Nucleotides: 375
Stems, first nucleotide, its partner, number of pairs: 004375003007371001008323007016036006041369003045366005050242005055072006078237003082233001083104006105128001106126001107124007129232002132173004140164004147158003179230002181226003196215008246262003266296007297308004326353008
Number, partner (000 for none) and nucleotide at each position: 001000a002000a003000u004375u005374u006373c007371g008323g009322g010321c011320a012319a013318u014317c015000g016036c017035g018034g019033u020032c021031u022000a023000g024000c025000u026000u027000g028000a029000c030000u031021a032020g033019g034018c035017u036016g037000a038000g039000g040000a041369a042368a043367g044000u045366c046365c047364a048363u049362g050242c051241u052240c053239g054238c055072a056071c057070a058069a059068a060067c061000u062000g063000a064000g065000a066000u067060g068059u069058u070057u071056g072055u073000a074000g075000u076000g077000u078237u079236c080235g081000u082233g083104c084103u085102u086101a087100g088099c089000g090000a091000a092000a093000u094000c095000a096000u097000a098000a099088g100087c101086u102085a103084a104083g105128g106126c107124c108123u109122c110121c111120a112119a113118c114000u115000u116000a117000u118113g119112u120111u121110g122109g123108a124107g125000u126106g127000a128105c129232g130231g131000c132173a133172g134171a135170a136000a137000a138000a139000a140164a141163g142162g143161c144000u145000a146000a147158g148157g149156c150000g151000g152000a153000a154000a155000c156149g157148c158147u159000a160000u161143g162142c163141c164140u165000g166000a167000g168000u169000a170135u171134u172133c173132u174000u175000g176000a177000a178000a179230g180229u181226g182225c183224c184000a185000c186000a187000g188000u189000g190000a191000c192000g193000a194000a195000g196215c197214a198213a199212u200211a201210u202209u203208g204000g205000a206000a207000a208203c209202a210201a211200u212199a213198u214197u215196g216000g217000u218000g219000g220000a221000a222000c223000g224183g225182g226181u227000a228000a229180a230179c231130c232129c233082c234000u235080c236079g237078a238054g239053c240052g241051a242050g243000c244000a245000a246262c247261c248260c249000a250000a251000a252000c253000u254000u255000u256000g257000g258000u259000a260248g261247g262246g263000g264000c265000a266296c267295u268294c269293u270292u271291u272290c273000u274000a275000u276000g277000g278000a279000a280000a281000u282000g283000a284000a285000c286000a287000g288000a289000u290272g291271a292270a293269a294268g295267a296266g297308g298307c299306a300305a301000u302000u303000u304000u305300u306299u307298g308297c309000a310000g311000a312000c313000a314000g315000a316000u317014g318013a319012u320011u321010g322009c323008c324000u325000c326353c327352g328351g329350a330349u331348a332347a333346u334000u335000c336000g337000a338000g339000c340000c341000u342000g343000a344000a345000g346333a347332u348331u349330a350329u351328c352327c353326g354000a355000g356000a357000c358000a359000g360000a361000a362049c363048a364047u365046g366045g367043c368042u369041u370000a371007c372000a373006g374005a375004a